[Rfam]
RNA: mir-564 microRNA precursor family
Organism: Homo sapiens
RNA sequence: CAGCGGGUGCCAGGCACGGUGUCAGCAGGCAACAUGGCCGAGAGGCCGGGGCCUCCGGGCGGCGCCGUGUCCGCGACCGCGU
Numbered sequence: 001c002a003g004c005g006g007g008u009g010c011c012a013g014g015c016a017c018g019g020u021g022u023c024a025g026c027a028g029g030c031a032a033c034a035u036g037g038c039c040g041a042g043a044g045g046c047c048g049g050g051g052c053c054u055c056c057g058g059g060c061g062g063c064g065c066c067g068u069g070u071c072c073g074c075g076a077c078c079g080c081g082u
Base pairs, nucleotide, nucleotide: 003080004079005078006077008075009074010073013071014070015069016068017067018066019065020064021063022062023061025060026059027054028053029052030051035048036047037046038045039044